Description:
The record is a 92-nucleotide RNA sequence from Geomesophilobacter sediminis, which matches "c-di-GMP-I riboswitch aptamer" in Rfam. NCBI's taxonomy places the organism under Bacteria, Thermodesulfobacteriota, Geobacterales, Geobacteraceae, Geomesophilobacter. Pairs were carried over by alignment from the consensus structure, which is taken from published work. Rfam's curators write: GEMM was predicted in a large-scale screen for bacterial structured RNA regulatory elements.

RNA sequence: UUUCCGAAACGGUAAACUUGGAAGAAAUUCCAAGGGCACAAAGCUGACGGACCCGAUGUCCUAAAAAAAUAUCAGGUAGCCGAGCUCCCGAA
Numbered sequence: 001u002u003u004c005c006g007a008a009a010c011g012g013u014a015a016a017c018u019u020g021g022a023a024g025a026a027a028u029u030c031c032a033a034g035g036g037c038a039c040a041a042a043g044c045u046g047a048c049g050g051a052c053c054c055g056a057u058g059u060c061c062u063a064a065a066a067a068a069a070u071a072u073c074a075g076g077u078a079g080c081c082g083a084g085c086u087c088c089c090g091a092a
Stems, first nucleotide, its partner, number of pairs: 012039002017034006042086004048082003051077003059071001062068001